Rfam assigns this 67-nucleotide RNA sequence from Bombyx mori to the family "mir-2774 microRNA precursor family". It scores 79 bits against the family's covariance model. Rfam links the family to the GO terms miRNA-mediated post-transcriptional gene silencing and RISC complex. Taxonomically the source falls in Bombyx (Eukaryota, Metazoa, Allotriocarida, Neolepidoptera).
RNA sequence: UUGUUGUUCGGAACGUCGGUCUACCGAGCAAUAUCACCCGCUCGGUGGAAGAUCUUCCCUUUGUCGU
Numbered sequence: 001u002u003g004u005u006g007u008u009c010g011g012a013a014c015g016u017c018g019g020u021c022u023a024c025c026g027a028g029c030a031a032u033a034u035c036a037c038c039c040g041c042u043c044g045g046u047g048g049a050a051g052a053u054c055u056u057c058c059c060u061u062u063g064u065c066g067u
Stems, first nucleotide, its partner, number of pairs: 005063002010058003015053003020049010